[Rfam]
RNA sequence: UGCGACACCCAUCAAAGGAGUAGUAGCUCUCCACCCGGAGCUACUUUAUCAUAUUUCGAAUAU
Numbered sequence: 001u002g003c004g005a006c007a008c009c010c011a012u013c014a015a016a017g018g019a020g021u022a023g024u025a026g027c028u029c030u031c032c033a034c035c036c037g038g039a040g041c042u043a044c045u046u047u048a049u050c051a052u053a054u055u056u057c058g059a060a061u062a063u
Stems, first nucleotide, its partner, number of pairs: 017047008028039003
A member of the RNA family "Plastid-psbN 5UTR RNA" from Nicotiana tabacum, 63 nucleotides long. Rfam's curators write: Plastid psbN is a non-coding RNA (ncRNA) recognised in plastids. Pairs were carried over by alignment from the consensus structure, which was predicted with LocARNA. The organism belongs to Nicotiana, within Eukaryota. A reference for the family is Richter et al. (2023), "Retrograde signaling in plants: A critical review focusing on the GUN pathway and beyond", Plant Commun.